[Rfam]
Rfam assigns this 115-nucleotide RNA sequence from Hemibagrus wyckioides to the family "U5 spliceosomal RNA". The source organism's lineage runs through Eukaryota, Vertebrata, Osteoglossocephalai, Otomorpha and Hemibagrus. U5 RNA is a component of both types of known spliceosome. The base pairs follow the family's consensus structure, which is taken from published work. Rfam classes the family as a spliceosomal small nuclear RNA.

RNA sequence: UAGCUCUGGUUUCUCUUAAGUCAUGCAUAAAUCUUUUGCCUUUUUUUAAAAAAUUCUAUGGUGAGGAAUAUCAGUGAGUUUGAUGUAUUUUUGUGAGCUUUGCUCUAGCAAAGCU
Numbered sequence: 001u002a003g004c005u006c007u008g009g010u011u012u013c014u015c016u017u018a019a020g021u022c023a024u025g026c027a028u029a030a031a032u033c034u035u036u037u038g039c040c041u042u043u044u045u046u047u048a049a050a051a052a053a054u055u056c057u058a059u060g061g062u063g064a065g066g067a068a069u070a071u072c073a074g075u076g077a078g079u080u081u082g083a084u085g086u087a088u089u090u091u092u093g094u095g096a097g098c099u100u101u102g103c104u105c106u107a108g109c110a111a112a113g114c115u
Stems, first nucleotide, its partner, number of pairs: 003079004009069007017061001019059001029055002032052001034050003095115001097114006